[Rfam]
RNA sequence: CCUCCAGUUCUUGCAUGCAUGUAGUUGUCAGUACUCAUGUGUGUAAUAUACGGAGGGACAGUAACUGUCAGUGCAAUGUCUUCGGUACCAGUGAGCCCAAAUCUCCUGGUUCUAUCCUCAAUCACUGGCACAAGA
Numbered sequence: 001c002c003u004c005c006a007g008u009u010c011u012u013g014c015a016u017g018c019a020u021g022u023a024g025u026u027g028u029c030a031g032u033a034c035u036c037a038u039g040u041g042u043g044u045a046a047u048a049u050a051c052g053g054a055g056g057g058a059c060a061g062u063a064a065c066u067g068u069c070a071g072u073g074c075a076a077u078g079u080c081u082u083c084g085g086u087a088c089c090a091g092u093g094a095g096c097c098c099a100a101a102u103c104u105c106c107u108g109g110u111u112c113u114a115u116c117c118u119c120a121a122u123c124a125c126u127g128g129c130a131c132a133a134g135a
Base pairs, nucleotide, nucleotide: 001056002055003054004053005052014043015042016041017040018039019038021036023035024034025033069127070126071125072124073123088109089108090107091106093104

Small nucleolar RNA SNORA57: a 135-nucleotide RNA from Acipenser ruthenus. A search with the family's covariance model found it, with a score of 84 bits. About the family: U99 belongs to the H/ACA class of snoRNAs which are thought to guide the sites of modification of uridines to pseudouridines, the target for this family is unknown. Gene Ontology terms of the family: RNA processing and nucleolus. Taxonomically the source falls in Acipenser (Eukaryota, Craniata, Acipenseriformes, Acipenserini). It is annotated as an H/ACA-box small nucleolar RNA.